tRNA: a 73-nucleotide sequence from Nyssa sinensis. Lineage of the source: Eukaryota > Embryophyta > Tracheophyta > Nyssaceae > Nyssa. The family's consensus secondary structure is taken from published work. Rfam describes the family as follows. Transfer RNA (tRNA) molecules are approximately 80 nucleotides in length.
[Rfam]
RNA sequence: GGGGGUAUAGUAUAGCUGGUUAGUAUAUUUCCUUUGCAAGGAUGAGACACAGGUUCGAGUCCUGUUACCUCCA
Numbered sequence: 001g002g003g004g005g006u007a008u009a010g011u012a013u014a015g016c017u018g019g020u021u022a023g024u025a026u027a028u029u030u031c032c033u034u035u036g037c038a039a040g041g042a043u044g045a046g047a048c049a050c051a052g053g054u055u056c057g058a059g060u061c062c063u064g065u066u067a068c069c070u071c072c073a
Stems, first nucleotide, its partner, number of pairs: 001072007010026004028044001030042003049065005